[Rfam]
The record is a 136-nucleotide RNA sequence from Bacillus aquiflavi, which matches "PyrR binding site" in Rfam.

RNA sequence: UCACCCUUUAAAUAAUAGUCCAGUGAGGCUAUAAAGGGUGUUAUGAGUAAAAACGGCAAACAAAUUAGAAUGUAUUUCUUGCCUUUUUACAAACAUGCAUAACACCCUGAUCAUCCGAUUUAGGGUGUUUUUUUAA
Numbered sequence: 001u002c003a004c005c006c007u008u009u010a011a012a013u014a015a016u017a018g019u020c021c022a023g024u025g026a027g028g029c030u031a032u033a034a035a036g037g038g039u040g041u042u043a044u045g046a047g048u049a050a051a052a053a054c055g056g057c058a059a060a061c062a063a064a065u066u067a068g069a070a071u072g073u074a075u076u077u078c079u080u081g082c083c084u085u086u087u088u089a090c091a092a093a094c095a096u097g098c099a100u101a102a103c104a105c106c107c108u109g110a111u112c113a114u115c116c117g118a119u120u121u122a123g124g125g126u127g128u129u130u131u132u133u134u135a136a
Stems, first nucleotide, its partner, number of pairs: 003039007015032006052086002055083005062076002099131001101129010
About this RNA:
This family represents the PyrR binding site and terminator structure. This RNA structure is found upstream of a variety of genes involved in pyrimidine biosynthesis and transport. The alignment also includes a portion of the antiterminator structure. The base pairs follow the family's consensus structure, which is taken from published work. For this family Rfam cites "Molecular recognition of pyr mRNA by the Bacillus subtilis attenuation regulatory protein PyrR" (Bonner et al., Nucleic Acids Res, 2001). Its family is annotated with pyrimidine nucleobase biosynthetic process and pyrimidine nucleobase transport in the Gene Ontology. Taxonomically the source falls in Bacillus (Bacteria, Bacillati, Bacillota, Bacillaceae).